[Rfam]
RNA sequence: AACCACAUUAUCGAUGAAUGGAUUCACCCAUGAGAUAACGUGGUUGUUCCAUCAAGGAUGAGGACGUGGCAUCAAGGAUGAGGAUGUCAUGUCCUCAUUCUAGGUGAAACAGUCAUGUCAUCUCGCAGGUGAAUCCAUUCAUUGAUAGUGUGGUU
Numbered sequence: 001a002a003c004c005a006c007a008u009u010a011u012c013g014a015u016g017a018a019u020g021g022a023u024u025c026a027c028c029c030a031u032g033a034g035a036u037a038a039c040g041u042g043g044u045u046g047u048u049c050c051a052u053c054a055a056g057g058a059u060g061a062g063g064a065c066g067u068g069g070c071a072u073c074a075a076g077g078a079u080g081a082g083g084a085u086g087u088c089a090u091g092u093c094c095u096c097a098u099u100c101u102a103g104g105u106g107a108a109a110c111a112g113u114c115a116u117g118u119c120a121u122c123u124c125g126c127a128g129g130u131g132a133a134u135c136c137a138u139u140c141a142u143u144g145a146u147a148g149u150g151u152g153g154u155u
Base pairs, nucleotide, nucleotide: 001155002154003153004152005151006150007149009147010146011145012144013143014142015141017139018138019137021135022134023133024132025131026130027129028128031125032124033123035121036120038118039117041115042114043113044112045111046110047109048108051105052104055101057099058098063093064092065091069087070086071085072084073083
Dot-bracket structure: (((((((.(((((((.(((.((((((((..(((.((.((.((((((((..((..(.((....(((...(((((.........)))))...)))....)).)..))..)))))))).)).)).)))..)))))))).))).))))))).)))))))